[Rfam]
RNA sequence: UACCGCGCUUUUUAACGACACACACGUUUCGUCACAUGAGGUAGGGUCCUUUAUUUUAGGAAUAGAGGUGUCUCAUGGGAAACGUGGAGGCUUAAC
Numbered sequence: 001u002a003c004c005g006c007g008c009u010u011u012u013u014a015a016c017g018a019c020a021c022a023c024a025c026g027u028u029u030c031g032u033c034a035c036a037u038g039a040g041g042u043a044g045g046g047u048c049c050u051u052u053a054u055u056u057u058a059g060g061a062a063u064a065g066a067g068g069u070g071u072c073u074c075a076u077g078g079g080a081a082a083c084g085u086g087g088a089g090g091c092u093u094a095a096c
Stems, first nucleotide, its partner, number of pairs: 023086008035077009048068005
The record is a 96-nucleotide RNA from Legionella beliardensis, which matches "t44 RNA" in Rfam. A reference for the family is Tjaden et al. (2002), "Transcriptome analysis of Escherichia coli using high-density oligonucleotide probe arrays", Nucleic Acids Res. The family's RNA type in Rfam is small RNA. This family consists of a number of bacterial RNA genes of between 135 and 170 bases in length.